[Rfam]
Nucleotides: 072
Base pairs, nucleotide, nucleotide: 014026015025016024017023032067033066035062040057044053045052046051
Number, partner (000 for none) and nucleotide at each position: 001000c002000u003000u004000c005000a006000c007000c008000g009000a010000c011000c012000c013000c014026a015025g016024c017023c018000a019000c020000a021000a022000c023017g024016g025015c026014u027000c028000a029000c030000c031000g032067g033066c034000a035062c036000g037000c038000g039000c040057c041000c042000g043000a044053c045052c046051g047000u048000a049000g050000g051046u052045g053044g054000c055000a056000a057040g058000c059000a060000a061000g062035g063000c064000c065000u066033g067032c068000g069000c070000c071000u072000c